[Rfam]
RNA sequence: AGAUUUCUUCGGGGCAGGGUGUAAUUCCCGACCGACGGUGACAAUUCAACGAAAUUGAAGUCCGUGACCCACGCAAGUGGUGGACCUGGUGAGAAUCCGGGACCGACAGUAUAGUCUGGAUGGUAGAAGAACAAU
Numbered sequence: 001a002g003a004u005u006u007c008u009u010c011g012g013g014g015c016a017g018g019g020u021g022u023a024a025u026u027c028c029c030g031a032c033c034g035a036c037g038g039u040g041a042c043a044a045u046u047c048a049a050c051g052a053a054a055u056u057g058a059a060g061u062c063c064g065u066g067a068c069c070c071a072c073g074c075a076a077g078u079g080g081u082g083g084a085c086c087u088g089g090u091g092a093g094a095a096u097c098c099g100g101g102a103c104c105g106a107c108a109g110u111a112u113a114g115u116c117u118g119g120a121u122g123g124u125a126g127a128a129g130a131a132c133a134a135u
Base pairs, nucleotide, nucleotide: 005131006130007129008128009127010126017029018028019027031115032114033105034104035065036064037063038062060103061102069080070079085101086100087099088098089097107118108117109116
Description: The record is a 135-nucleotide RNA from Companilactobacillus farciminis, which matches "FMN riboswitch aptamer (RFN element)" in Rfam. The RFN element is a highly conserved domain that is found frequently in the 5'-untranslated regions of prokaryotic mRNAs that encode for flavin mononucleotide (FMN) biosynthesis and transport proteins. The organism belongs to Companilactobacillus, within Bacteria.